[Rfam]
RNA: Bacterial large subunit ribosomal RNA, nucleotides 1288 to 1622
Organism: Algibacter luteus
RNA sequence: GAUAAUGCGGGCGAGAAACCCGCACUCCGAAAGACUAAGGUUUCCUCAGCUAUGCUAAUCAGCUGAGGGUUAGUCGGGACCUAACGCGAACCCGAAAGGGGUAGUGGAUGGACAACAGGUUAAUAUUCCUGUACCCGCUCUCAAUAAAAGUGACGGAGGCGUAUAUUUGGUGCGAACUGACGGAAUAGUUCGUUGAAGCCAGUGGUAACACGGCGAUAGUACACUGAGGUUUCGGCCAAGGUGAUAAUCCAGAGAAGCGACUUCCAAGAAAAGCGAGAGAAGCGGCCCGUACCCUAAACCGACACAGGUAGUUGGGAUGAGAAUUCUAAGGAGCU
Numbered sequence: 001g002a003u004a005a006u007g008c009g010g011g012c013g014a015g016a017a018a019c020c021c022g023c024a025c026u027c028c029g030a031a032a033g034a035c036u037a038a039g040g041u042u043u044c045c046u047c048a049g050c051u052a053u054g055c056u057a058a059u060c061a062g063c064u065g066a067g068g069g070u071u072a073g074u075c076g077g078g079a080c081c082u083a084a085c086g087c088g089a090a091c092c093c094g095a096a097a098g099g100g101g102u103a104g105u106g107g108a109u110g111g112a113c114a115a116c117a118g119g120u121u122a123a124u125a126u127u128c129c130u131g132u133a134c135c136c137g138c139u140c141u142c143a144a145u146a147a148a149a150g151u152g153a154c155g156g157a158g159g160c161g162u163a164u165a166u167u168u169g170g171u172g173c174g175a176a177c178u179g180a181c182g183g184a185a186u187a188g189u190u191c192g193u194u195g196a197a198g199c200c201a202g203u204g205g206u207a208a209c210a211c212g213g214c215g216a217u218a219g220u221a222c223a224c225u226g227a228g229g230u231u232u233c234g235g236c237c238a239a240g241g242u243g244a245u246a247a248u249c250c251a252g253a254g255a256a257g258c259g260a261c262u263u264c265c266a267a268g269a270a271a272a273g274c275g276a277g278a279g280a281a282g283c284g285g286c287c288c289g290u291a292c293c294c295u296a297a298a299c300c301g302a303c304a305c306a307g308g309u310a311g312u313u314g315g316g317a318u319g320a321g322a323a324u325u326c327u328a329a330g331g332a333g334c335u
Stems, first nucleotide, its partner, number of pairs: 006024006025333004033313004039293002044068006053061002075289004080111002085106003089102001091100003115132005135285005140277003150274002155264004166253005172193006209228001211226003215222001217221001233241001299308002315327003